Group II catalytic intron D1-D4-2: a 117-nucleotide sequence.
Rfam's curators write: Group II introns are found in rRNA, tRNA and mRNA of organelles in fungi, plants and protists, and also in mRNA in bacteria.
Pairs were carried over by alignment from the consensus structure.
On this family, see Bonen and Vogel, Trends Genet 2001: "The ins and outs of group II introns".

[Rfam]
RNA sequence: AAGGGACGGCCCCCGAUGCCGGCUUGCAGAAGUGGGCUUCAACCGCCAACAAGCUGCGUGGGCAAAGAGCCUUCUUGUUGAACGUUGAUGGAAAAGUCGGGGACAACCCCGGCAGGU
Numbered sequence: 001a002a003g004g005g006a007c008g009g010c011c012c013c014c015g016a017u018g019c020c021g022g023c024u025u026g027c028a029g030a031a032g033u034g035g036g037c038u039u040c041a042a043c044c045g046c047c048a049a050c051a052a053g054c055u056g057c058g059u060g061g062g063c064a065a066a067g068a069g070c071c072u073u074c075u076u077g078u079u080g081a082a083c084g085u086u087g088a089u090g091g092a093a094a095a096g097u098c099g100g101g102g103a104c105a106a107c108c109c110c111g112g113c114a115g116g117u
Stems, first nucleotide, its partner, number of pairs: 003013003015040002018037003022033004044116001046091002050087003053079001056076001058074001060072004096113006
Rfam links the family to the GO term Group II intron splicing.
The family has 144 seed sequences and 1,231 matches in Rfam 15.1.
It is one of the family's seed sequences.